[Rfam]
RNA sequence: UAACAGUUAUAUGACUGACGGAAGUGGAGUAAACCACAUGAAGUAUAACGAUAUGAAUGCCGACCGUCUGGGCGAGGAGU
Numbered sequence: 001u002a003a004c005a006g007u008u009a010u011a012u013g014a015c016u017g018a019c020g021g022a023a024g025u026g027g028a029g030u031a032a033a034c035c036a037c038a039u040g041a042a043g044u045a046u047a048a049c050g051a052u053a054u055g056a057a058u059g060c061c062g063a064c065c066g067u068c069u070g071g072g073c074g075a076g077g078a079g080u
Stems, first nucleotide, its partner, number of pairs: 003052001006049007015040001017068005024037004058074004